[Rfam]
RNA: mir-147 microRNA precursor family
RNA sequence: UAUGAAUCUAGUGGAAUCACUUCUGCACAAACUUGACUACCGACAUCAGUGUGCGGAAAUGCUUCUGCUACGUUUUUA
Numbered sequence: 001u002a003u004g005a006a007u008c009u010a011g012u013g014g015a016a017u018c019a020c021u022u023c024u025g026c027a028c029a030a031a032c033u034u035g036a037c038u039a040c041c042g043a044c045a046u047c048a049g050u051g052u053g054c055g056g057a058a059a060u061g062c063u064u065c066u067g068c069u070a071c072g073u074u075u076u077u078a
Stems, first nucleotide, its partner, number of pairs: 001078002004075004009070008018061002021058009032049002
Dot-bracket structure: ((.((((.((((((((.((.(((((((((..((..............))))))))))).)).)))))))).)))).))